[Rfam]
RNA sequence: GAAAGCACAGGCAACUGACGGAACGUGGAGCACACCACAUGGGAGCCUGCUGUAAUACGAACUGUCGACCGUCUGGGCAAACCUG
Numbered sequence: 001g002a003a004a005g006c007a008c009a010g011g012c013a014a015c016u017g018a019c020g021g022a023a024c025g026u027g028g029a030g031c032a033c034a035c036c037a038c039a040u041g042g043g044a045g046c047c048u049g050c051u052g053u054a055a056u057a058c059g060a061a062c063u064g065u066c067g068a069c070c071g072u073c074u075g076g077g078c079a080a081a082c083c084u085g
Base pairs, nucleotide, nucleotide: 004051005050006049009048010047011046012045015042016041017073018072019071020070021069025038026037027036028035063079064078065077066076